RNA sequence: CGGGAACAACCGACGUUAGGGAAUUCGGCAAUUUAGCCCCGUAAGUUCGCGAUAAGGGGUGCCUGCCCAGCAAUUGGGCAGGUCGCAGAGACCAGGAGGCUCCGACUGUCUAGUAACAACAUAGGUGACCGCAAAUCCGCAAGGACUCGUACGGUCACUGAAUCCUGCCCAGUGCGGGUAUCUGAACACCUAGUACAAUAGGACGAAGGACCCGUUAACGGCGGGGGUAACUAUGACCCUCUUAAGGUAGCGUAGUACCUUGCCGCUUCAGUAGCGGCUUGCAUGAAUGGAUCAACGAGAGCCUCGCUGUCCCAACGUUGGGCCCGGUGAAACGUACGUUCCAGUGCGGAGUCUGGAGU
Numbered sequence: 001c002g003g004g005a006a007c008a009a010c011c012g013a014c015g016u017u018a019g020g021g022a023a024u025u026c027g028g029c030a031a032u033u034u035a036g037c038c039c040c041g042u043a044a045g046u047u048c049g050c051g052a053u054a055a056g057g058g059g060u061g062c063c064u065g066c067c068c069a070g071c072a073a074u075u076g077g078g079c080a081g082g083u084c085g086c087a088g089a090g091a092c093c094a095g096g097a098g099g100c101u102c103c104g105a106c107u108g109u110c111u112a113g114u115a116a117c118a119a120c121a122u123a124g125g126u127g128a129c130c131g132c133a134a135a136u137c138c139g140c141a142a143g144g145a146c147u148c149g150u151a152c153g154g155u156c157a158c159u160g161a162a163u164c165c166u167g168c169c170c171a172g173u174g175c176g177g178g179u180a181u182c183u184g185a186a187c188a189c190c191u192a193g194u195a196c197a198a199u200a201g202g203a204c205g206a207a208g209g210a211c212c213c214g215u216u217a218a219c220g221g222c223g224g225g226g227g228u229a230a231c232u233a234u235g236a237c238c239c240u241c242u243u244a245a246g247g248u249a250g251c252g253u254a255g256u257a258c259c260u261u262g263c264c265g266c267u268u269c270a271g272u273a274g275c276g277g278c279u280u281g282c283a284u285g286a287a288u289g290g291a292u293c294a295a296c297g298a299g300a301g302c303c304u305c306g307c308u309g310u311c312c313c314a315a316c317g318u319u320g321g322g323c324c325c326g327g328u329g330a331a332a333c334g335u336a337c338g339u340u341c342c343a344g345u346g347c348g349g350a351g352u353c354u355g356g357a358g359u
Stems, first nucleotide, its partner, number of pairs: 001326004010321008019312003036060005045050001061083009084088001096305007103297002107121003124159008132149001136145003162292004167222003172219002174215005181210003189202004223241006242246001262278006340357005
RNA: Archaeal large subunit ribosomal RNA, nucleotides 1727 to 2085